[Rfam]
RNA sequence: GCAUCUGAAUCUUUCCCGCUUCUUGCGAUGUAGUGCUGGAUUUGGGAACUCACGAUGCGACAGGAAAGCAGAGGAAAUCCAGACAAGCUCCCUUUUGUCAGAGUGGGACUUGUCUCUACACCUUUGCAACAUUU
Numbered sequence: 001g002c003a004u005c006u007g008a009a010u011c012u013u014u015c016c017c018g019c020u021u022c023u024u025g026c027g028a029u030g031u032a033g034u035g036c037u038g039g040a041u042u043u044g045g046g047a048a049c050u051c052a053c054g055a056u057g058c059g060a061c062a063g064g065a066a067a068g069c070a071g072a073g074g075a076a077a078u079c080c081a082g083a084c085a086a087g088c089u090c091c092c093u094u095u096u097g098u099c100a101g102a103g104u105g106g107g108a109c110u111u112g113u114c115u116c117u118a119c120a121c122c123u124u125u126g127c128a129a130c131a132u133u134u
Base pairs, nucleotide, nucleotide: 001058002057003056004055005054013048014047015046016045017044018043021040022039068127069126070125071124072123073122081115082114083113084112085111086110087109095106096105097104

The record is a 134-nucleotide RNA from Pedionomus torquatus, which matches "Small nucleolar RNA SNORA55" in Rfam.
The family's RNA type in Rfam is H/ACA-box small nucleolar RNA.
From the family's description: ACA55 is a member of the H/ACA class of snoRNA that guide the sites of modification of uridines to pseudouridines.
It scores 100 bits against the family's covariance model.
Gene Ontology terms of the family: nucleolus and RNA processing.
Pairs were carried over by alignment from the consensus structure, which was predicted with PFOLD.
Taxonomically the source falls in Pedionomus (Eukaryota, Deuterostomia, Sarcopterygii, Tetrapoda).